[Rfam]
RNA sequence: GGCGGUAGGCCCGCCGGUUUCGGUGUUCGGGCACUGAUACCAAACCACUUGCCGGUGCUGCUACUAAGAGUGGUGGUGCUAAGCGGCAAGAAAAGGAACAGGUCUGCACUGUUUCAGGU
Numbered sequence: 001g002g003c004g005g006u007a008g009g010c011c012c013g014c015c016g017g018u019u020u021c022g023g024u025g026u027u028c029g030g031g032c033a034c035u036g037a038u039a040c041c042a043a044a045c046c047a048c049u050u051g052c053c054g055g056u057g058c059u060g061c062u063a064c065u066a067a068g069a070g071u072g073g074u075g076g077u078g079c080u081a082a083g084c085g086g087c088a089a090g091a092a093a094a095g096g097a098a099c100a101g102g103u104c105u106g107c108a109c110u111g112u113u114u115c116a117g118g119u
Stems, first nucleotide, its partner, number of pairs: 001015005016041003020037002023034004046118001048090006054080002057077003061073004095115006
The record is a 119-nucleotide sequence from a Pseudomonadota bacterium, which matches "Group II catalytic intron D1-D4-2" in Rfam. Group II introns are found in rRNA, tRNA and mRNA of organelles in fungi, plants and protists, and also in mRNA in bacteria. The base pairs follow the family's consensus structure. Rfam 15.1 lists 1,231 matches to the family in 625 species.